The record is a 59-nucleotide sequence from Cellulomonas sp. KH9, which matches "msiK RNA" in Rfam. It is annotated as a cis-regulatory element. A search with the family's covariance model found it, with a score of 65 bits. The base pairs follow the family's consensus structure, which is taken from published work.

[Rfam]
RNA sequence: CGUUGACACUCUUCACGACGGAUCGUCCGGCACGUACCUGCCGGUGAAGGGACUGAACC
Numbered sequence: 001c002g003u004u005g006a007c008a009c010u011c012u013u014c015a016c017g018a019c020g021g022a023u024c025g026u027c028c029g030g031c032a033c034g035u036a037c038c039u040g041c042c043g044g045u046g047a048a049g050g051g052a053c054u055g056a057a058c059c
Stems, first nucleotide, its partner, number of pairs: 009051007027044006